Source information:
Rfam assigns this 178-nucleotide sequence from Gouania willdenowi to the family "Small nucleolar RNA SNORA81". The literature on the family includes a 2005 paper in Nucleic Acids Res by Gu et al., "A novel experimental approach for systematic identification of box H/ACA snoRNAs from eukaryotes". Rfam classes the family as an H/ACA-box small nucleolar RNA. Taxonomically the source falls in Gouania (Eukaryota, Deuterostomia, Teleostomi, Blenniiformes).

[Rfam]
RNA sequence: UCCUUCUGCCUCAAAAGAGCUCUGCUAUAAUCAUGUGAUCCACACGCUGGGUCACGUGAUAAUGCUAGCCGAGUUUAGCGUGGAAGGAGAUCAAAGCGCUCUGCACUGUAAAUGAGAUGUGGUCGAACCUCUUUCUUAAUGUUCUUUGGCCGCCGUCUCGAGGUGCAGAGCUACAGAU
Numbered sequence: 001u002c003c004u005u006c007u008g009c010c011u012c013a014a015a016a017g018a019g020c021u022c023u024g025c026u027a028u029a030a031u032c033a034u035g036u037g038a039u040c041c042a043c044a045c046g047c048u049g050g051g052u053c054a055c056g057u058g059a060u061a062a063u064g065c066u067a068g069c070c071g072a073g074u075u076u077a078g079c080g081u082g083g084a085a086g087g088a089g090a091u092c093a094a095a096g097c098g099c100u101c102u103g104c105a106c107u108g109u110a111a112a113u114g115a116g117a118u119g120u121g122g123u124c125g126a127a128c129c130u131c132u133u134u135c136u137u138a139a140u141g142u143u144c145u146u147u148g149g150c151c152g153c154c155g156u157c158u159c160g161a162g163g164u165g166c167a168g169a170g171c172u173a174c175a176g177a178u
Stems, first nucleotide, its partner, number of pairs: 020073002024069004030063002033060001036054002039051004098171008120149001122147001125144003